[Rfam]
RNA sequence: ACAACAUUCGGAACAUCGGUCUACCGAGCAAUUACACCCGCUCAGUGGAAGAUCUUCCCUCCAUCGC
Numbered sequence: 001a002c003a004a005c006a007u008u009c010g011g012a013a014c015a016u017c018g019g020u021c022u023a024c025c026g027a028g029c030a031a032u033u034a035c036a037c038c039c040g041c042u043c044a045g046u047g048g049a050a051g052a053u054c055u056u057c058c059c060u061c062c063a064u065c066g067c
Stems, first nucleotide, its partner, number of pairs: 004064001010058003015053003020049005026043004

Source information:
Shown here is a 67-nucleotide RNA from Bombyx mori, a member of the family "mir-2774 microRNA precursor family". Lineage of the source: Eukaryota > Metazoa > Eumetazoa > Bombycinae > Bombyx. The literature on the family includes a 2010 paper in BMC Genomics by Liu et al., "MicroRNAs of Bombyx mori identified by Solexa sequencing". A search with the family's covariance model found it, with a score of 74 bits.